[Rfam]
RNA sequence: GCGGUCUGAAAAUCAUUCGGGGUCUGCCGUGGCCCCGGGUGAGAUAACGGCGCCCAGAGCAUCGGGAACAUUAAGCUUAUUGCCCGCUGUGUGUGGGCAAUGAAACCCAUGUUCCCACAAGC
Numbered sequence: 001g002c003g004g005u006c007u008g009a010a011a012a013u014c015a016u017u018c019g020g021g022g023u024c025u026g027c028c029g030u031g032g033c034c035c036c037g038g039g040u041g042a043g044a045u046a047a048c049g050g051c052g053c054c055c056a057g058a059g060c061a062u063c064g065g066g067a068a069c070a071u072u073a074a075g076c077u078u079a080u081u082g083c084c085c086g087c088u089g090u091g092u093g094u095g096g097g098c099a100a101u102g103a104a105a106c107c108c109a110u111g112u113u114c115c116c117a118c119a120a121g122c
Base pairs, nucleotide, nucleotide: 006050007049008048010045013042014041015040016039021034022033023032024031065115067113068112069111070110071109077103078102079101080100081099085093086092087091
Shown here is a 122-nucleotide sequence from Vidua macroura, a member of the family "Small nucleolar RNA ACA64". Rfam links the family to the GO terms RNA processing and nucleolus. For this family Rfam cites "A computational screen for mammalian pseudouridylation guide H/ACA RNAs" (Schattner et al., RNA, 2006). It is annotated as an H/ACA-box small nucleolar RNA. Pairs were carried over by alignment from the consensus structure, which was predicted with WAR. A search with the family's covariance model found it, with a score of 88 bits.